Plastid-psbN 5UTR RNA: a 60-nucleotide RNA from Phtheirospermum japonicum.
RNA sequence: UGCGACACCCAUCAAAGAGUCGUUCCCCACCCAGAAGCUACUUUACCAUAUUCUGAAAUC
Numbered sequence: 001u002g003c004g005a006c007a008c009c010c011a012u013c014a015a016a017g018a019g020u021c022g023u024u025c026c027c028c029a030c031c032c033a034g035a036a037g038c039u040a041c042u043u044u045a046c047c048a049u050a051u052u053c054u055g056a057a058a059u060c
Stems, first nucleotide, its partner, number of pairs: 016044005022038003026034001

The literature on the family includes a 2023 paper in Plant Commun by Richter et al., "Retrograde signaling in plants: A critical review focusing on the GUN pathway and beyond". It is annotated as a cis-regulatory element. The match comes from Rfam's covariance-model search (65 bits). Plastid psbN is a non-coding RNA (ncRNA) recognised in plastids. It was reported as a conserved 11 stem-loop in the prime untranslated region (5UTR) of psbN genes.